[Rfam]
RNA sequence: CUUGAAAAUGGCAAACCUGCCGUGAGGUGGGGGCGCAAAGCCACGAGUCUUUUGUUGACAAAACGUCAAUAAAAGACAGUCGGGUUGCCAAGG
Numbered sequence: 001c002u003u004g005a006a007a008a009u010g011g012c013a014a015a016c017c018u019g020c021c022g023u024g025a026g027g028u029g030g031g032g033g034c035g036c037a038a039a040g041c042c043a044c045g046a047g048u049c050u051u052u053u054g055u056u057g058a059c060a061a062a063a064c065g066u067c068a069a070u071a072a073a074a075g076a077c078a079g080u081c082g083g084g085u086u087g088c089c090a091a092g093g
Stems, first nucleotide, its partner, number of pairs: 001093001003090002011036002016031006034079001039086004044082003047077013
RNA: c-di-GMP-I-GGC riboswitch aptamer